A member of the RNA family "U5 spliceosomal RNA" from Tursiops truncatus, 122 nucleotides long. The match comes from Rfam's covariance-model search (50 bits). Gene Ontology terms of the family: spliceosomal tri-snRNP complex assembly and U5 snRNP. By type it is a spliceosomal small nuclear RNA. The organism belongs to Tursiops, within Eukaryota. The base pairs follow the family's consensus structure, which is taken from published work.

[Rfam]
RNA sequence: AUACUCGUGCUUCUCUUCAUAAUCAAAUGAAUCUUUUGCCUUUUCCUAAAGAUUCGUCUGGGGAGGGAUAAAGCAUGACUAUUGCUUCAGUUUUUUGAGGCCUUCUGGGAAUAAACAAGGCU
Numbered sequence: 001a002u003a004c005u006c007g008u009g010c011u012u013c014u015c016u017u018c019a020u021a022a023u024c025a026a027a028u029g030a031a032u033c034u035u036u037u038g039c040c041u042u043u044u045c046c047u048a049a050a051g052a053u054u055c056g057u058c059u060g061g062g063g064a065g066g067g068a069u070a071a072a073g074c075a076u077g078a079c080u081a082u083u084g085c086u087u088c089a090g091u092u093u094u095u096u097g098a099g100g101c102c103u104u105c106u107g108g109g110a111a112u113a114a115a116c117a118a119g120g121c122u
Stems, first nucleotide, its partner, number of pairs: 003080001005078002009069001011067009029055008098122001100121005